[Rfam]
RNA sequence: ACUGCUGAGCCAUCUCUCCAGCUUCGUAAUAAUACUUCUUAAGUAAAAGAAUAGAGUUAAAGGCUGGAGAGAUGGCUCAGCGGU
Numbered sequence: 001a002c003u004g005c006u007g008a009g010c011c012a013u014c015u016c017u018c019c020a021g022c023u024u025c026g027u028a029a030u031a032a033u034a035c036u037u038c039u040u041a042a043g044u045a046a047a048a049g050a051a052u053a054g055a056g057u058u059a060a061a062g063g064c065u066g067g068a069g070a071g072a073u074g075g076c077u078c079a080g081c082g083g084u
Base pairs, nucleotide, nucleotide: 002083003082004081005080006079007078008077009076010075011074012073013072014071015070016069017068018067019066020065021064022063023062024061
Dot-bracket structure: .(((((((((((((((((((((((....................................))))))))))))))))))))))).